[Rfam]
RNA sequence: AGCCACAAAUUAAAGGUCAUAGCAGAAGUGCUCACAGUGCAGCCAUAUCAGAUUCCAAGGAAGCUGCAAAUUCUGCU
Numbered sequence: 001a002g003c004c005a006c007a008a009a010u011u012a013a014a015g016g017u018c019a020u021a022g023c024a025g026a027a028g029u030g031c032u033c034a035c036a037g038u039g040c041a042g043c044c045a046u047a048u049c050a051g052a053u054u055c056c057a058a059g060g061a062a063g064c065u066g067c068a069a070a071u072u073c074u075g076c077u
Base pairs, nucleotide, nucleotide: 015044016043017042021077022076023075024074025073026072027071028040029039030038049066050065051064053062054061055060